RNA sequence: AAUGCCUCUCGAAUAACCAGAAGGUUAGAUUGUAAUCCGACGCCGUUUGGUUCAGACAGAGGCUGAGAUCAACUCGAACCAGUUUGAGGGUAAGGAACGAUUUUCCUCCGUUCCUUUCCUAGAUUGUUUUCGUACAUUCCUAAUUUUGUUUUGAGUUUUG
Numbered sequence: 001a002a003u004g005c006c007u008c009u010c011g012a013a014u015a016a017c018c019a020g021a022a023g024g025u026u027a028g029a030u031u032g033u034a035a036u037c038c039g040a041c042g043c044c045g046u047u048u049g050g051u052u053c054a055g056a057c058a059g060a061g062g063c064u065g066a067g068a069u070c071a072a073c074u075c076g077a078a079c080c081a082g083u084u085u086g087a088g089g090g091u092a093a094g095g096a097a098c099g100a101u102u103u104u105c106c107u108c109c110g111u112u113c114c115u116u117u118c119c120u121a122g123a124u125u126g127u128u129u130u131c132g133u134a135c136a137u138u139c140c141u142a143a144u145u146u147u148g149u150u151u152u153g154a155g156u157u158u159u160g
Stems, first nucleotide, its partner, number of pairs: 004063004009059001015052007024043002075160004080155001082124003088119003092116001095113005130154003
RNA: Small nucleolar RNA snoR138